[Rfam]
RNA sequence: GUCAGCGAGUCGAAGAUCCCAGAUGUUCAAUCAGGUUAUGAAAAAAUGAGCACGUCAAUGCUGGCGGCAUUAGCUGGCGCUAACUACAUUCACGAUGCGG
Numbered sequence: 001g002u003c004a005g006c007g008a009g010u011c012g013a014a015g016a017u018c019c020c021a022g023a024u025g026u027u028c029a030a031u032c033a034g035g036u037u038a039u040g041a042a043a044a045a046a047u048g049a050g051c052a053c054g055u056c057a058a059u060g061c062u063g064g065c066g067g068c069a070u071u072a073g074c075u076g077g078c079g080c081u082a083a084c085u086a087c088a089u090u091c092a093c094g095a096u097g098c099g100g
Stems, first nucleotide, its partner, number of pairs: 003012001025032001033062002077098001079096001
Dot-bracket structure: ..(........)............(......)((..........................))..............(.(................).)..
Annotation:
The family of this 100-nucleotide sequence from Peptococcaceae bacterium CEB3 is "Pyrrolysine insertion sequence mttB". It is annotated as a cis-regulatory element. It scores 60 bits against the family's covariance model. Pairs were carried over by alignment from the consensus structure, which was predicted with CMfinder.